[Rfam]
RNA sequence: GCUUUCUCCCAGAUAGUGCUGGGGGAUAAGCGAACGCCUUACGAGCUUGGACUCUCGUAGGGCGUUCUUUUUUGUAAUU
Numbered sequence: 001g002c003u004u005u006c007u008c009c010c011a012g013a014u015a016g017u018g019c020u021g022g023g024g025g026a027u028a029a030g031c032g033a034a035c036g037c038c039u040u041a042c043g044a045g046c047u048u049g050g051a052c053u054c055u056c057g058u059a060g061g062g063c064g065u066u067c068u069u070u071u072u073u074g075u076a077a078u079u
Base pairs, nucleotide, nucleotide: 001031002030003029006025007024008023009022010021011020012019033066034065035064036063037062038061039060040059041058042057043056044055045054
RNA: ctRNA